[Rfam]
Shown here is a 311-nucleotide part of an RNA from Caenorhabditis elegans, a member of the family "Eukaryotic large subunit ribosomal RNA".
RNA sequence: GAGUGCUUGUCUACUGCGAGUCAAAGGGUGUUAAAACCUUGCGGCGAAAUGAAAGUAAAGGUCAGUCUCGAAUUGGCCGACGUGGGAUCUGUGUUCUUCGGAGUGCAGCGCACCACGGCCCUGUGCGUGUCACUUGUGACUGUGCAGAGGUUGAGCAGUUGGCAAACGACCCGAAAGAUGGUGAACUAUGCCUGAGCAGGAUGAAGCCAGAGGAAACUCUGGUGGAAGUCCGUAUCGGUUCUGACGUGCAAAUCGAUCGAUAGACUUGGGUAUAGGGGCGAAAGACUAAUCGAACCAUCUAGUAGCUGGUU
Numbered sequence: 001g002a003g004u005g006c007u008u009g010u011c012u013a014c015u016g017c018g019a020g021u022c023a024a025a026g027g028g029u030g031u032u033a034a035a036a037c038c039u040u041g042c043g044g045c046g047a048a049a050u051g052a053a054a055g056u057a058a059a060g061g062u063c064a065g066u067c068u069c070g071a072a073u074u075g076g077c078c079g080a081c082g083u084g085g086g087a088u089c090u091g092u093g094u095u096c097u098u099c100g101g102a103g104u105g106c107a108g109c110g111c112a113c114c115a116c117g118g119c120c121c122u123g124u125g126c127g128u129g130u131c132a133c134u135u136g137u138g139a140c141u142g143u144g145c146a147g148a149g150g151u152u153g154a155g156c157a158g159u160u161g162g163c164a165a166a167c168g169a170c171c172c173g174a175a176a177g178a179u180g181g182u183g184a185a186c187u188a189u190g191c192c193u194g195a196g197c198a199g200g201a202u203g204a205a206g207c208c209a210g211a212g213g214a215a216a217c218u219c220u221g222g223u224g225g226a227a228g229u230c231c232g233u234a235u236c237g238g239u240u241c242u243g244a245c246g247u248g249c250a251a252a253u254c255g256a257u258c259g260a261u262a263g264a265c266u267u268g269g270g271u272a273u274a275g276g277g278g279c280g281a282a283a284g285a286c287u288a289a290u291c292g293a294a295c296c297a298u299c300u301a302g303u304a305g306c307u308g309g310u311u
Base pairs, nucleotide, nucleotide: 005167007165008164009163010162011161013159014158015157016156017155020045021044022043025040026039027038028037029036049056050055081117082116083115084114085113089108090107091106092105093104094103119150120149121147122146123145124144125143126142131138132137170309171308173306177299178298179297180296181295182294186275187274188273189272190271191270192269193268194267195266196265197263199231200230201229202228206223207222208221209220210219211218212217235260236259237258238257240256241255243254244253277287278286
NCBI's taxonomy places the organism under Eukaryota, Metazoa, Protostomia, Peloderinae, Caenorhabditis.